[Rfam]
RNA sequence: CGGGGAAAGAAGACCCUGUUGAGCUUGACUCUAGUUUGACUUUGUGAAAAGACUUGAAAGGUGUAGAAUAAGUGGGAGUCGCAAGACAGCCGUGAAAUACCACUACUUCCAAUGUCUUUUUACUUAAUCCGUUACAUUGAGACUUACAUUAUGUAAGGUUCUGAUUUAAGGCAUUUAUGCUGAUCAAAGUGGAUGACAGAGUCAGAUGGGGAGUUUGGCUGGGGCGGUACAUCUGUUAAACAACAACGCAGGUGUCCUAAGGCAAGCUCAAUGAGAACAGAAAUCUCAUGUUGACCAAAAGGGGAAAAGCUUGCUUGAUUUUGAUUUUCAGUACGAAUACAAACUGUGAAAGCAUGGCCUAUCGAUCCUUUAGAUCUGAGAAGUUUUCAGCUAGAGGUGCCAGAAAAGUUACCACAGGGAUAACUGGCUUGUGGCAGCCAAGCGUUCAUAGCGACGUUGCUUUUUGAUCCUUCGAUGUCGGCUCUUCCUAUCAUUGAGGAUGCAGAAGUCCCAAAGUGUCGGAUUGUUCACCCGUUAAUCAGGGAACGUGAGCUGGGUUUAGACCGUCGCGAGACAGGUUAGUUUUAUCCUA
Numbered sequence: 001c002g003g004g005g006a007a008a009g010a011a012g013a014c015c016c017u018g019u020u021g022a023g024c025u026u027g028a029c030u031c032u033a034g035u036u037u038g039a040c041u042u043u044g045u046g047a048a049a050a051g052a053c054u055u056g057a058a059a060g061g062u063g064u065a066g067a068a069u070a071a072g073u074g075g076g077a078g079u080c081g082c083a084a085g086a087c088a089g090c091c092g093u094g095a096a097a098u099a100c101c102a103c104u105a106c107u108u109c110c111a112a113u114g115u116c117u118u119u120u121u122a123c124u125u126a127a128u129c130c131g132u133u134a135c136a137u138u139g140a141g142a143c144u145u146a147c148a149u150u151a152u153g154u155a156a157g158g159u160u161c162u163g164a165u166u167u168a169a170g171g172c173a174u175u176u177a178u179g180c181u182g183a184u185c186a187a188a189g190u191g192g193a194u195g196a197c198a199g200a201g202u203c204a205g206a207u208g209g210g211g212a213g214u215u216u217g218g219c220u221g222g223g224g225c226g227g228u229a230c231a232u233c234u235g236u237u238a239a240a241c242a243a244c245a246a247c248g249c250a251g252g253u254g255u256c257c258u259a260a261g262g263c264a265a266g267c268u269c270a271a272u273g274a275g276a277a278c279a280g281a282a283a284u285c286u287c288a289u290g291u292u293g294a295c296c297a298a299a300a301g302g303g304g305a306a307a308a309g310c311u312u313g314c315u316u317g318a319u320u321u322u323g324a325u326u327u328u329c330a331g332u333a334c335g336a337a338u339a340c341a342a343a344c345u346g347u348g349a350a351a352g353c354a355u356g357g358c359c360u361a362u363c364g365a366u367c368c369u370u371u372a373g374a375u376c377u378g379a380g381a382a383g384u385u386u387u388c389a390g391c392u393a394g395a396g397g398u399g400c401c402a403g404a405a406a407a408g409u410u411a412c413c414a415c416a417g418g419g420a421u422a423a424c425u426g427g428c429u430u431g432u433g434g435c436a437g438c439c440a441a442g443c444g445u446u447c448a449u450a451g452c453g454a455c456g457u458u459g460c461u462u463u464u465u466g467a468u469c470c471u472u473c474g475a476u477g478u479c480g481g482c483u484c485u486u487c488c489u490a491u492c493a494u495u496g497a498g499g500a501u502g503c504a505g506a507a508g509u510c511c512c513a514a515a516g517u518g519u520c521g522g523a524u525u526g527u528u529c530a531c532c533c534g535u536u537a538a539u540c541a542g543g544g545a546a547c548g549u550g551a552g553c554u555g556g557g558u559u560u561a562g563a564c565c566g567u568c569g570c571g572a573g574a575c576a577g578g579u580u581a582g583u584u585u586u587a588u589c590c591u592a
Stems, first nucleotide, its partner, number of pairs: 003591003007586002015418004020414002022410005028214004035206007044123010054112003058108003071104005078087002127194005137187004144156005170181004217230001218228003231253006256357002262314006268294002271289006295304002319343003324338004345354003368396006376390004427468001429466001431465001433461006442452002479556001480554004484548001485545005492518002495513002498511004520534003524530001562580004566575003
A member of the RNA family "Eukaryotic large subunit ribosomal RNA" from Dendroctonus ponderosae, 592 nucleotides of a longer RNA. The match comes from Rfam's covariance-model search (3083 bits). Its family is annotated with ribosome and structural constituent of ribosome in the Gene Ontology. On this family, see Cannone et al., BMC Bioinformatics 2002: "The comparative RNA web (CRW) site: an online database of comparative sequence and structure information for ribosomal, intron, and other RNAs". The family has 88 seed sequences and 107,465 matches in Rfam 15.1. Pairs were carried over by alignment from the consensus structure, which is taken from published work.